[Rfam]
RNA sequence: GGAGAAGUAGCUCAGCUUGGCAGAGCGCUACGUUUGGGACGUAGUGGUCGCAGGUUCAAAUCCUGUCUUCUUCA
Numbered sequence: 001g002g003a004g005a006a007g008u009a010g011c012u013c014a015g016c017u018u019g020g021c022a023g024a025g026c027g028c029u030a031c032g033u034u035u036g037g038g039a040c041g042u043a044g045u046g047g048u049c050g051c052a053g054g055u056u057c058a059a060a061u062c063c064u065g066u067c068u069u070c071u072u073c074a
Stems, first nucleotide, its partner, number of pairs: 001073007010026004028044005050066005
RNA: tRNA
Organism: Mycoplasmopsis anatis